[Rfam]
RNA sequence: GAAUGACGAACAACAAACUCAGGAACGAGGACGGGGGACCCAACAUCUCUCGCGAGAUAACGGACAUCGGCACCGAUGCCCUUGGGGUUAAGUCCACCGGCCGCCGCGGCGGCCACGGACCGAGCAACCUCUCGUUCGAACCCGACAGCUGACUUCGUAGGCGCGUGGAGAGAGGAAAG
Numbered sequence: 001g002a003a004u005g006a007c008g009a010a011c012a013a014c015a016a017a018c019u020c021a022g023g024a025a026c027g028a029g030g031a032c033g034g035g036g037g038a039c040c041c042a043a044c045a046u047c048u049c050u051c052g053c054g055a056g057a058u059a060a061c062g063g064a065c066a067u068c069g070g071c072a073c074c075g076a077u078g079c080c081c082u083u084g085g086g087g088u089u090a091a092g093u094c095c096a097c098c099g100g101c102c103g104c105c106g107c108g109g110c111g112g113c114c115a116c117g118g119a120c121c122g123a124g125c126a127a128c129c130u131c132u133c134g135u136u137c138g139a140a141c142c143c144g145a146c147a148g149c150u151g152a153c154u155u156c157g158u159a160g161g162c163g164c165g166u167g168g169a170g171a172g173a174g175g176a177a178a179g
Stems, first nucleotide, its partner, number of pairs: 004030001031158006041084002085143003093119003122137004
Dot-bracket structure: ...(.........................)((((((....((........................................))(((.....(((.....................)))..((((........))))...))).........)))))).....................
Rfam assigns this 179-nucleotide RNA sequence from Gordonia aichiensis to the family "c-di-AMP riboswitch aptamer (ydaO/yuaA leader)".
The match comes from Rfam's covariance-model search (54 bits).
About the family: This family represents a conserved RNA structure found upstream of the ydaO and yuaA genes in Bacillus subtilis and related genes in other bacteria.